[Rfam]
RNA sequence: AGGGCCUGAUUUCCUCGGUAGUUAACUGCAACCGGUUUUCUAAAACUUCGGCGGUUAACUGCCGAUGGGCAU
Numbered sequence: 001a002g003g004g005c006c007u008g009a010u011u012u013c014c015u016c017g018g019u020a021g022u023u024a025a026c027u028g029c030a031a032c033c034g035g036u037u038u039u040c041u042a043a044a045a046c047u048u049c050g051g052c053g054g055u056u057a058a059c060u061g062c063c064g065a066u067g068g069g070c071a072u
Stems, first nucleotide, its partner, number of pairs: 012068002015065015
About this RNA: MIR2629 microRNA precursor family: a 72-nucleotide sequence from Medicago truncatula. The source organism's lineage runs through Eukaryota, Euphyllophyta, fabids, Papilionoideae and Medicago. Rfam links the family to the GO terms RISC complex and miRNA-mediated post-transcriptional gene silencing. The match comes from Rfam's covariance-model search (61 bits).